A member of the RNA family "mir-239 microRNA precursor family", 67 nucleotides long.
Rfam 15.1 lists 54 matches to the family in 39 species.
The base pairs follow the family's consensus structure, which was predicted with RNAalifold.
The match comes from Rfam's covariance-model search (50 bits).
A reference for the family is Ruby et al. (2006), "Large-scale sequencing reveals 21U-RNAs and additional microRNAs and endogenous siRNAs in C. elegans", Cell.
Rfam links the family to the GO terms RISC complex and miRNA-mediated post-transcriptional gene silencing.
RNA sequence: CAAUCUUUGUACUAUACAACUGUUCUGGCUGUCUAUGCUCAGUACAUUUGUAUGGUACAAGAAUGGC
Numbered sequence: 001c002a003a004u005c006u007u008u009g010u011a012c013u014a015u016a017c018a019a020c021u022g023u024u025c026u027g028g029c030u031g032u033c034u035a036u037g038c039u040c041a042g043u044a045c046a047u048u049u050g051u052a053u054g055g056u057a058c059a060a061g062a063a064u065g066g067c
Base pairs, nucleotide, nucleotide: 003064004063006061007060008059009058010057011056012055015052016051017050018049019048021046022045023044025042026041027040028038029037